[Rfam]
RNA: c-di-AMP riboswitch aptamer (ydaO/yuaA leader)
Organism: Nostoc sp. PCC 7107
RNA sequence: AGAGUAAGUCAGCCUAAUUCAGCGUGUCAAAGUACAUAACGCUGAAGCGGAGGAACCAAAUUUUGGGGCGUAUCUUAAUAGAAGUGAAAAGUAAAAAGUAAAAAGUUAGUCAUAAUCUAACUCAGCACUGAUUACUCAGCACUCUAAAAAGAGGGGCAUCUCUCAGCCCUAGCCCGUCAGCUAACUUCGUAGGCAUUGAGAGGAGACUGA
Numbered sequence: 001a002g003a004g005u006a007a008g009u010c011a012g013c014c015u016a017a018u019u020c021a022g023c024g025u026g027u028c029a030a031a032g033u034a035c036a037u038a039a040c041g042c043u044g045a046a047g048c049g050g051a052g053g054a055a056c057c058a059a060a061u062u063u064u065g066g067g068g069c070g071u072a073u074c075u076u077a078a079u080a081g082a083a084g085u086g087a088a089a090a091g092u093a094a095a096a097a098g099u100a101a102a103a104a105g106u107u108a109g110u111c112a113u114a115a116u117c118u119a120a121c122u123c124a125g126c127a128c129u130g131a132u133u134a135c136u137c138a139g140c141a142c143u144c145u146a147a148a149a150a151g152a153g154g155g156g157c158a159u160c161u162c163u164c165a166g167c168c169c170u171a172g173c174c175c176g177u178c179a180g181c182u183a184a185c186u187u188c189g190u191a192g193g194c195a196u197u198g199a200g201a202g203g204a205g206a207c208u209g210a
Stems, first nucleotide, its partner, number of pairs: 012194003018046008047190006057065002066175003074151003154169004